[Rfam]
The family of this 38-nucleotide RNA from Acerihabitans arboris is "JUMPstart RNA".
RNA sequence: GAGUGCUUUGGCAACUGCAAGCCAAGGGCGGUAGCGUG
Numbered sequence: 001g002a003g004u005g006c007u008u009u010g011g012c013a014a015c016u017g018c019a020a021g022c023c024a025a026g027g028g029c030g031g032u033a034g035c036g037u038g
Stems, first nucleotide, its partner, number of pairs: 008025005